[Rfam]
RNA sequence: CAACCGUCACAACGGCUUCCUGACGUGGCGGAUUUACACAAUGGAGCA
Numbered sequence: 001c002a003a004c005c006g007u008c009a010c011a012a013c014g015g016c017u018u019c020c021u022g023a024c025g026u027g028g029c030g031g032a033u034u035u036a037c038a039c040a041a042u043g044g045a046g047c048a
Stems, first nucleotide, its partner, number of pairs: 004031007013022002015047003019044002
Rfam assigns this 48-nucleotide sequence from Aquimixticola soesokkakensis to the family "SAM/SAH riboswitch aptamer". The literature on the family includes a 2019 paper in Nucleic Acids Res by Weickhmann et al., "The structure of the SAM/SAH-binding riboswitch". Pairs were carried over by alignment from the consensus structure, which is taken from published work. NCBI's taxonomy places the organism under Bacteria, Pseudomonadati, Rhodobacterales, Paracoccaceae, Aquimixticola.